Rfam assigns this 144-nucleotide RNA sequence from Enterobacteriaceae bacterium strain FGI 57 to the family "Glm Y RNA activator of glmS mRNA".
It is annotated as a small RNA.
About the family: This family consists of a number of bacterial RNA genes of around 167 bases in length. The tke1 RNA gene is present in Escherichia coli, Shigella flexneri, Yersinia pestis and Salmonella species where it is found between the yfhK and purL genes. The function of this RNA is unknown.
The family is grouped with related families in Rfam's "Glm clan".

[Rfam]
RNA sequence: AGUGGCUCAUUCACCCUCUUAUGUCAGCCCCUUCGGGACGUGCUACAUAAACUUCGAAUGACGCACAACAAGGUGCCUGCCGUCCAGCUUCUGAUAUCUUUGCAUAUCAACCAUCGGGCGAAACGUUGAGUUAGGCACCGCCUU
Number, nucleotide and partner (000 for none) at each position: 001a000002g000003u000004g000005g064006c063007u061008c060009a059010u058011u057012c056013a000014c000015c000016c000017u000018c000019u050020u049021a048022u047023g046024u045025c000026a044027g043028c042029c000030c000031c000032u000033u000034c000035g000036g000037g000038a000039c000040g000041u000042g028043c027044u026045a024046c023047a022048u021049a020050a019051a000052c000053u000054u000055c000056g012057a011058a010059u009060g008061a007062c000063g006064c005065a000066c000067a000068a000069c000070a000071a000072g139073g138074u137075g136076c135077c134078u133079g000080c000081c120082g119083u118084c117085c116086a000087g000088c000089u000090u000091c000092u109093g108094a107095u106096a105097u104098c000099u000100u000101u000102g000103c000104a097105u096106a095107u094108c093109a092110a000111c000112c000113a000114u000115c000116g085117g084118g083119c082120g081121a000122a132123a131124c130125g000126u000127u000128g000129a000130g124131u123132u122133a078134g077135g076136c075137a074138c073139c072140g000141c000142c000143u000144u000